[Rfam]
RNA sequence: UACUACCAAACCCUAUUUCCACCUCCACGUGGUGGCCGCUGGGAGUUAUUUUUUAACGAAAAACUGCACACGGAGAAGG
Numbered sequence: 001u002a003c004u005a006c007c008a009a010a011c012c013c014u015a016u017u018u019c020c021a022c023c024u025c026c027a028c029g030u031g032g033u034g035g036c037c038g039c040u041g042g043g044a045g046u047u048a049u050u051u052u053u054u055a056a057c058g059a060a061a062a063a064c065u066g067c068a069c070a071c072g073g074a075g076a077a078g079g
Stems, first nucleotide, its partner, number of pairs: 012079003016075004021033003045067002049063005

Record summary: drz-agam-1 ribozyme: a 79-nucleotide RNA sequence from Hermetia illucens. A search with the family's covariance model found it, with a score of 40 bits. Rfam 15.1 lists 10,507 matches to the family in 53 species. The family's consensus secondary structure is taken from published work. Taxonomically the source falls in Hermetia (Eukaryota, Opisthokonta, Insecta, Brachycera). Rfam links the family to the GO term catalytic activity.